Small nucleolar RNA SNORA1: a 132-nucleotide sequence from Merops nubicus. Rfam links the family to the GO terms nucleolus and RNA processing. NCBI's taxonomy places the organism under Eukaryota, Eumetazoa, Sauria, Coelurosauria, Merops. Rfam describes the family as follows. ACA1 is a member of the H/ACA class of snoRNA that guide the sites of modification of uridines to pseudouridines. The family's RNA type in Rfam is H/ACA-box small nucleolar RNA.
[Rfam]
RNA sequence: CGCCCCGUUAUUCAGCGAAUAGGCACAACCCACUGUGUGUCUGAAACGAAAAACGUGGCUAGAGGAGCAACAGGUUGUGCUUUCCUCACUGCAAAGCCAAUUGCAGUGGUGACAAUGAGACCUGUAACAGGC
Numbered sequence: 001c002g003c004c005c006c007g008u009u010a011u012u013c014a015g016c017g018a019a020u021a022g023g024c025a026c027a028a029c030c031c032a033c034u035g036u037g038u039g040u041c042u043g044a045a046a047c048g049a050a051a052a053a054c055g056u057g058g059c060u061a062g063a064g065g066a067g068c069a070a071c072a073g074g075u076u077g078u079g080c081u082u083u084c085c086u087c088a089c090u091g092c093a094a095a096g097c098c099a100a101u102u103g104c105a106g107u108g109g110u111g112a113c114a115a116u117g118a119g120a121c122c123u124g125u126a127a128c129a130g131g132c
Base pairs, nucleotide, nucleotide: 002059003058004057006055007054008053021042022041023040024039025038026037027036070125071124072123073122074121084111086109087108088107089106